Rfam assigns this 75-nucleotide RNA from Streptomyces sp. DI166 to the family "ASpks TB sRNA".
[Rfam]
RNA sequence: CUUCAACGAGCCGAGCCACAGCGGCUGUUCGGCGGGGCGGUCCUGGCCGUAGACGGCGAUCAGGGCCUGCGCCUC
Numbered sequence: 001c002u003u004c005a006a007c008g009a010g011c012c013g014a015g016c017c018a019c020a021g022c023g024g025c026u027g028u029u030c031g032g033c034g035g036g037g038c039g040g041u042c043c044u045g046g047c048c049g050u051a052g053a054c055g056g057c058g059a060u061c062a063g064g065g066c067c068u069g070c071g072c073c074u075c
Base pairs, nucleotide, nucleotide: 014026015025016024017023032070033069038065044059047056048055049054